[Rfam]
RNA sequence: GAGACCGGCUCAAAAAGCGUCCGUUAUGGAUGCCUGCCCUAGUAGGGAUAGAGCCGGUUUCGCCU
Numbered sequence: 001g002a003g004a005c006c007g008g009c010u011c012a013a014a015a016a017g018c019g020u021c022c023g024u025u026a027u028g029g030a031u032g033c034c035u036g037c038c039c040u041a042g043u044a045g046g047g048a049u050a051g052a053g054c055c056g057g058u059u060u061c062g063c064c065u
Base pairs, nucleotide, nucleotide: 001061002060003059004058005057006056007055008054009053010052011051017033018032019031020030021029022028037047038046039045

The record is a 65-nucleotide sequence, which matches "DUF3800-IX RNA" in Rfam. About the family: Actinobacteria, Firmicutes (1 example), Nitrospirae, Proteobacteria, Verrucomicrobia (1 example). The family's consensus secondary structure is taken from published work. Rfam's curators put it in the seed alignment.